[Rfam]
RNA sequence: UGCCUCUGACCUGGGUAGAGUGGCAUCUGGCUGUGACAUUCAUCUCAUAUCAGCCAGGGACAAAGCAACCCCUUGUUUAUUUCAGCUUGGCCUUUUGUCUGUGCCCAUGCCUGGUUCAUGCCUUGGACACACUA
Numbered sequence: 001u002g003c004c005u006c007u008g009a010c011c012u013g014g015g016u017a018g019a020g021u022g023g024c025a026u027c028u029g030g031c032u033g034u035g036a037c038a039u040u041c042a043u044c045u046c047a048u049a050u051c052a053g054c055c056a057g058g059g060a061c062a063a064a065g066c067a068a069c070c071c072c073u074u075g076u077u078u079a080u081u082u083c084a085g086c087u088u089g090g091c092c093u094u095u096u097g098u099c100u101g102u103g104c105c106c107a108u109g110c111c112u113g114g115u116u117c118a119u120g121c122c123u124u125g126g127a128c129a130c131a132c133u134a
Stems, first nucleotide, its partner, number of pairs: 001062002004059005011053004018046003022040002026036002074129006089122003095118001097116001099114003103110002
RNA: Small nucleolar RNA SNORA48